This 104-nucleotide RNA sequence belongs to the Rfam family "Methylobacterium-1 RNA".
RNA sequence: AAGGGUGAACGGGGCGUCUAAACAUUAUCAUCACGACGGUGGAAACAUUACCACCAAACGUCUGGGGUCGUUGUCCAAUGAGCGCCCAGAUCGUUACCGUAGAU
Numbered sequence: 001a002a003g004g005g006u007g008a009a010c011g012g013g014g015c016g017u018c019u020a021a022a023c024a025u026u027a028u029c030a031u032c033a034c035g036a037c038g039g040u041g042g043a044a045a046c047a048u049u050a051c052c053a054c055c056a057a058a059c060g061u062c063u064g065g066g067g068u069c070g071u072u073g074u075c076c077a078a079u080g081a082g083c084g085c086c087c088a089g090a091u092c093g094u095u096a097c098c099g100u101a102g103a104u
Stems, first nucleotide, its partner, number of pairs: 004032005011025001012023001038055005057095004061090006069084004

It is one of the family's seed sequences.